Source information
Aggregatibacter sRNA JA04: an 80-nucleotide RNA sequence from Parahaemophilus pittmaniae. It scores 95 bits against the family's covariance model. The family's RNA type in Rfam is small RNA. Its family is annotated with response to iron ion in the Gene Ontology.
RNA sequence: GCAACUUGCAGUUGUUUUAAUAAAAUUGGUUCCUUAGGUUAUUCGCCCUUCUUCUUGAAGGGCUUUUUUUUGCUCAUAAU
Numbered sequence: 001g002c003a004a005c006u007u008g009c010a011g012u013u014g015u016u017u018u019a020a021u022a023a024a025a026u027u028g029g030u031u032c033c034u035u036a037g038g039u040u041a042u043u044c045g046c047c048c049u050u051c052u053u054c055u056u057g058a059a060g061g062g063c064u065u066u067u068u069u070u071u072g073c074u075c076a077u078a079a080u
Base pairs, nucleotide, nucleotide: 001015002014003013004012005011006010045063046062047061048060049059050058051057